[Rfam]
RNA sequence: UUUGCAGCGGCAAAUCGGAACUACUAGCUCCUUCCGAAUCCCCCAGGUCCUGACGGAAGCAAGGGUAGGUGGUUGAUGCAGUGAGAUUCUCGGUUUGCCUUUUU
Numbered sequence: 001u002u003u004g005c006a007g008c009g010g011c012a013a014a015u016c017g018g019a020a021c022u023a024c025u026a027g028c029u030c031c032u033u034c035c036g037a038a039u040c041c042c043c044c045a046g047g048u049c050c051u052g053a054c055g056g057a058a059g060c061a062a063g064g065g066u067a068g069g070u071g072g073u074u075g076a077u078g079c080a081g082u083g084a085g086a087u088u089c090u091c092g093g094u095u096u097g098c099c100u101u102u103u104u
Stems, first nucleotide, its partner, number of pairs: 009099007018089003021085002023082002
The record is a 104-nucleotide RNA sequence from Dyadobacter luteus, which matches "Bacteroidales small SRP" in Rfam. Its Rfam clan is "SRP clan". Its family is annotated with signal recognition particle, plasma membrane targeting and SRP-dependent cotranslational protein targeting to membrane, signal sequence recognition in the Gene Ontology.